drz-agam-2-2 ribozyme: a 190-nucleotide sequence from Anopheles gambiae. The family has 5 seed sequences and 486 matches in Rfam 15.1.
RNA sequence: AGCAAUACCGCACUGAUACGGGUAUGGUCCGACACCUCUCGAAGGUUAAUAUAGGAUCUCCAUACCCUACUCCGACUCAAUACGUCCAUGGCGUACAUAACGGUAACAUAUCUCUCCAAUAAUCUGAGCUUGAGUACACGGGGAAACCCAACCCCUUGGGAGUAUGGGUUAUAUGGCUAAUUUGAGCGGG
Numbered sequence: 001a002g003c004a005a006u007a008c009c010g011c012a013c014u015g016a017u018a019c020g021g022g023u024a025u026g027g028u029c030c031g032a033c034a035c036c037u038c039u040c041g042a043a044g045g046u047u048a049a050u051a052u053a054g055g056a057u058c059u060c061c062a063u064a065c066c067c068u069a070c071u072c073c074g075a076c077u078c079a080a081u082a083c084g085u086c087c088a089u090g091g092c093g094u095a096c097a098u099a100a101c102g103g104u105a106a107c108a109u110a111u112c113u114c115u116c117c118a119a120u121a122a123u124c125u126g127a128g129c130u131u132g133a134g135u136a137c138a139c140g141g142g143g144a145a146a147c148c149c150a151a152c153c154c155c156u157u158g159g160g161a162g163u164a165u166g167g168g169u170u171a172u173a174u175g176g177c178u179a180a181u182u183u184g185a186g187c188g189g190g
Stems, first nucleotide, its partner, number of pairs: 012098001020067008029055002071190004076186005082094003086103002107175005114168001116167002122165002125162001130151003134147002153160002

It scores 155 bits against the family's covariance model. Its family is annotated with catalytic activity in the Gene Ontology. For this family Rfam cites "Widespread occurrence of self-cleaving ribozymes" (Webb et al., Science, 2009).